[Rfam]
RNA sequence: AAUGCUAUGAUGAGAGGAACUCCUAUUGGUGUCAAUGGGCAGUGGGUCAACUCCGUGAGCCUUAUAACAAAAACGACUUCUCUUUCCUCUGAGCAAU
Numbered sequence: 001a002a003u004g005c006u007a008u009g010a011u012g013a014g015a016g017g018a019a020c021u022c023c024u025a026u027u028g029g030u031g032u033c034a035a036u037g038g039g040c041a042g043u044g045g046g047u048c049a050a051c052u053c054c055g056u057g058a059g060c061c062u063u064a065u066a067a068c069a070a071a072a073a074c075g076a077c078u079u080c081u082c083u084u085u086c087c088u089c090u091g092a093g094c095a096a097u
Stems, first nucleotide, its partner, number of pairs: 001097001003095003
Dot-bracket structure: (.(((.......................................................................................))).)

Shown here is a 97-nucleotide RNA sequence from Cuscuta australis, a member of the family "Small nucleolar RNA Z152/R70/R12/".
The match comes from Rfam's covariance-model search (70 bits).
On this family, see Barneche et al., J Mol Biol 2001: "Identification of 66 box C/D snoRNAs in Arabidopsis thaliana: extensive gene duplications generated multiple isoforms predicting new ribosomal RNA 2'-O-methylation sites".
The source organism's lineage runs through Eukaryota, Viridiplantae, Tracheophyta, Mesangiospermae and Cuscuta sect. Cleistogrammica.
Gene Ontology terms of the family: RNA processing and nucleolus.
Rfam classes the family as a C/D-box small nucleolar RNA.